[Rfam]
RNA sequence: CCCUGACAGGCGUAAUGUGCGCCUGACUUAACCCACGACAGGAGAUAAAAAUG
Numbered sequence: 001c002c003c004u005g006a007c008a009g010g011c012g013u014a015a016u017g018u019g020c021g022c023c024u025g026a027c028u029u030a031a032c033c034c035a036c037g038a039c040a041g042g043a044g045a046u047a048a049a050a051a052u053g
Stems, first nucleotide, its partner, number of pairs: 002042004007025005
RNA: Mu-gpT-DE RNA